The record is a 91-nucleotide sequence from Marinobacterium lutimaris, which matches "t44 RNA" in Rfam. The family's consensus secondary structure was predicted with LocARNA. Lineage of the source: Bacteria > Pseudomonadati > Pseudomonadota > Oceanospirillales > Marinobacterium. Rfam's curators write: This family consists of a number of bacterial RNA genes of between 135 and 170 bases in length. The t44 gene has been identified in several species of enteric bacteria but homologs have also been identified in Pseudomonas and Coxiella species. The t44 gene is found between the map and rpsB genes in all species in the full alignment apart from Shigella flexneri.
[Rfam]
RNA sequence: CCCUGGCACAUUACAAAACACACACAUGUCGACACGCCGCUCCUGGGUGCCGCUGACGCGGUUGGACGGUGGGAUAUGUGGAGGUUUUAAC
Number, nucleotide and partner (000 for none) at each position: 001c000002c000003c000004u000005g000006g000007c000008a000009c000010a000011u000012u000013a000014c000015a000016a000017a000018a000019c000020a000021c000022a000023c080024a079025c078026a077027u076028g075029u074030c073031g000032a000033c000034a000035c071036g070037c069038c068039g067040c000041u066042c065043c064044u000045g000046g000047g000048u000049g062050c061051c060052g059053c058054u000055g000056a000057c000058g053059c052060g051061g050062u049063u000064g043065g042066a041067c039068g038069g037070u036071g035072g000073g030074a029075u028076a027077u026078g025079u024080g023081g000082a000083g000084g000085u000086u000087u000088u000089a000090a000091c000

The match comes from Rfam's covariance-model search (65 bits).